[Rfam]
RNA sequence: UUGUCCAAUGAUGAUCAAACUAAAUACUUUUGUUCUUCUGAUGUGCCAUCUGAUGGCUCGGUGCCGAAGCAAUUUGGAGACCUGAACUGCGGAUAU
Numbered sequence: 001u002u003g004u005c006c007a008a009u010g011a012u013g014a015u016c017a018a019a020c021u022a023a024a025u026a027c028u029u030u031u032g033u034u035c036u037u038c039u040g041a042u043g044u045g046c047c048a049u050c051u052g053a054u055g056g057c058u059c060g061g062u063g064c065c066g067a068a069g070c071a072a073u074u075u076g077g078a079g080a081c082c083u084g085a086a087c088u089g090c091g092g093a094u095a096u
Base pairs, nucleotide, nucleotide: 003094004093005092006091

The family of this 96-nucleotide sequence from Triticum urartu is "Small nucleolar RNA Z159/U59". Gene Ontology terms of the family: RNA processing and nucleolus. A reference for the family is Chen et al. (2003), "The high diversity of snoRNAs in plants: identification and comparative study of 120 snoRNA genes from Oryza sativa", Nucleic Acids Res. The base pairs follow the family's consensus structure, which was predicted with PFOLD. Rfam classes the family as a C/D-box small nucleolar RNA. The family has 10 seed sequences and 1,401 matches in Rfam 15.1. A search with the family's covariance model found it, with a score of 64 bits.